[Rfam]
RNA sequence: GGGUGCAGUCCCGGCACUGCAGGACAACGGAUGGUCGGGCCGCCAUCC
Numbered sequence: 001g002g003g004u005g006c007a008g009u010c011c012c013g014g015c016a017c018u019g020c021a022g023g024a025c026a027a028c029g030g031a032u033g034g035u036c037g038g039g040c041c042g043c044c045a046u047c048c
Base pairs, nucleotide, nucleotide: 005020006019007018008017009016029048030047031046032045033044034043035042
The family of this 48-nucleotide RNA is "nhaA-I RNA". From the family's description: Acidobacteria, Alphaproteobacteria, Betaproteobacteria and Gammaproteobacteria, Verrucomicrobia, cand. division NC10. The base pairs follow the family's consensus structure, which is taken from published work. By type it is a riboswitch.